This 132-nucleotide RNA from Castor canadensis belongs to the Rfam family "Small nucleolar RNA SNORA51". The match comes from Rfam's covariance-model search (119 bits). Rfam describes the family as follows. ACA51 is a member of the H/ACA class of snoRNA that guide the sites of modification of uridines to pseudouridines. The base pairs follow the family's consensus structure, which was predicted with PFOLD. Its family is annotated with RNA processing and nucleolus in the Gene Ontology.

RNA sequence: GGUUUUCUGGUGCUUAUCACAGGCUGUGUUCUUAAACUGACUGUUAUAGAAAGAGGAGGCAAAGUAAACCUAUCCCACAUACACCUCAGCCCAGGCCCUGUGCCUGGUCUGUAUUGUGAAAGGAAAAAAUAA
Numbered sequence: 001g002g003u004u005u006u007c008u009g010g011u012g013c014u015u016a017u018c019a020c021a022g023g024c025u026g027u028g029u030u031c032u033u034a035a036a037c038u039g040a041c042u043g044u045u046a047u048a049g050a051a052a053g054a055g056g057a058g059g060c061a062a063a064g065u066a067a068a069c070c071u072a073u074c075c076c077a078c079a080u081a082c083a084c085c086u087c088a089g090c091c092c093a094g095g096c097c098c099u100g101u102g103c104c105u106g107g108u109c110u111g112u113a114u115u116g117u118g119a120a121a122g123g124a125a126a127a128a129a130u131a132a
Stems, first nucleotide, its partner, number of pairs: 002060007020043003026037002029034001073124003087111003091107006